[Rfam]
RNA sequence: GAGCAAUGAAGAUAAUUGUGCUAUUGUGAUGGUAGGGUCAUCACGCUUGUCUGAUCUUUAGAUGAAAUACAGCACACCUGAGUUC
Numbered sequence: 001g002a003g004c005a006a007u008g009a010a011g012a013u014a015a016u017u018g019u020g021c022u023a024u025u026g027u028g029a030u031g032g033u034a035g036g037g038u039c040a041u042c043a044c045g046c047u048u049g050u051c052u053g054a055u056c057u058u059u060a061g062a063u064g065a066a067a068u069a070c071a072g073c074a075c076a077c078c079u080g081a082g083u084u085c
Base pairs, nucleotide, nucleotide: 001085002084003083004082
RNA: small nucleolar RNA snoR114
Organism: Hibiscus trionum